Rfam assigns this 91-nucleotide RNA from Olavius algarvensis associated proteobacterium Delta 3 to the family "c-di-GMP-I riboswitch aptamer". A search with the family's covariance model found it, with a score of 82 bits. About the family: GEMM was predicted in a large-scale screen for bacterial structured RNA regulatory elements. The organism belongs to Deltaproteobacteria, within Bacteria.

[Rfam]
RNA sequence: GCUUGAUAAAGGCAAAUCAUCCGAAAGGUUGAGACGCAAAGCCACUGGCCUAAGUCCUGAUUCGUCAGGAUACGGCAGCAGGGCUGCCGGG
Numbered sequence: 001g002c003u004u005g006a007u008a009a010a011g012g013c014a015a016a017u018c019a020u021c022c023g024a025a026a027g028g029u030u031g032a033g034a035c036g037c038a039a040a041g042c043c044a045c046u047g048g049c050c051u052a053a054g055u056c057c058u059g060a061u062u063c064g065u066c067a068g069g070a071u072a073c074g075g076c077a078g079c080a081g082g083g084c085u086g087c088c089g090g091g
Base pairs, nucleotide, nucleotide: 012037013036017032018031019030021028022027040085041084042083043082045081046080047079048076049075050074055070056069057068058067059066060065